[Rfam]
RNA: Bacterial small signal recognition particle RNA
Organism: Synechococcus sp. CC9902
Nucleotides: 097
Stems, first nucleotide, its partner, number of pairs: 004091005010084005017076006026065003034059004042051003
Number, partner (000 for none) and nucleotide at each position: 001000g002000a003000c004091u005090c006089g007088g008087a009000c010084c011083c012082a013081u014080g015000c016000g017076g018075u019074u020073c021072u022071g023000a024000c025000g026065c027064c028063c029000a030000a031000a032000u033000c034059u035058g036057g037056u038000c039000a040000g041000g042051a043050c044049c045000g046000g047000a048000a049044g050043g051042u052000a053000g054000c055000a056037g057036c058035c059034a060000c061000a062000c063028g064027g065026g066000a067000u068000g069000c070000u071022c072021a073020g074019g075018a076017c077000a078000g079000g080014c081013g082012u083011g084010g085000a086000c087008u088007c089006c090005g091004g092000g093000u094000c095000a096000c097000c